[Rfam]
RNA sequence: CACCGGUUCGGCUAUCGGCUAGGCCAUCAUCCUUUCACGGUGAGGAGACGGGUUCGAUUCCCGUACCGGUGA
Numbered sequence: 001c002a003c004c005g006g007u008u009c010g011g012c013u014a015u016c017g018g019c020u021a022g023g024c025c026a027u028c029a030u031c032c033u034u035u036c037a038c039g040g041u042g043a044g045g046a047g048a049c050g051g052g053u054u055c056g057a058u059u060c061c062c063g064u065a066c067c068g069g070u071g072a
Stems, first nucleotide, its partner, number of pairs: 001071007010025004027043005048064005